[Rfam]
RNA: L2-Alphaproteobacteria ribosomal protein leader
Organism: Rubellimicrobium mesophilum
Nucleotides: 068
Stems, first nucleotide, its partner, number of pairs: 001018004006014003029047001031046005
Number, partner (000 for none) and nucleotide at each position: 001018g002017g003016g004015g005000a006014c007013c008012u009000u010000c011000g012008g013007g014006g015004c016003c017002c018001u019000u020000c021000a022000u023000c024000u025000a026000a027000c028000g029047g030000a031046c032045g033044c034043a035042c036000c037000g038000u039000a040000c041000g042035g043034u044033g045032c046031g047029c048000g049000a050000a051000g052000c053000a054000g055000a056000c057000g058000g059000a060000a061000g062000a063000c064000a065000g066000a067000a068000a